The family of this 75-nucleotide RNA sequence from Eptesicus fuscus is "mir-412 microRNA precursor family".
RNA sequence: ACAGGAUGGGUGGUCGACCAGUUGGAAAGUAAUUGUUUCUAAUGUACUUCACCUGGUCCACUAGCCGUCCGUAUC
Numbered sequence: 001a002c003a004g005g006a007u008g009g010g011u012g013g014u015c016g017a018c019c020a021g022u023u024g025g026a027a028a029g030u031a032a033u034u035g036u037u038u039c040u041a042a043u044g045u046a047c048u049u050c051a052c053c054u055g056g057u058c059c060a061c062u063a064g065c066c067g068u069c070c071g072u073a074u075c
Base pairs, nucleotide, nucleotide: 001072002071005069006068007067008066009065011063012062013061014060016058017057018056019055020054021053023051024050025049028048029047030046031045032043033042034041035040
The base pairs follow the family's consensus structure, which was predicted with RNAalifold.